[Rfam]
RNA: Makes More Granules Regulator RNA (mmgR)
Organism: Sphingobium cloacae
RNA sequence: AGGACCUGCCUUUCAGGCAUCCUCUCCUAAAACUUUUCCAGGCUGAUCUUCGGAUCAGCCUUUUUUUUGUCCGCGA
Numbered sequence: 001a002g003g004a005c006c007u008g009c010c011u012u013u014c015a016g017g018c019a020u021c022c023u024c025u026c027c028u029a030a031a032a033c034u035u036u037u038c039c040a041g042g043c044u045g046a047u048c049u050u051c052g053g054a055u056c057a058g059c060c061u062u063u064u065u066u067u068u069g070u071c072c073g074c075g076a
Stems, first nucleotide, its partner, number of pairs: 008018004040061009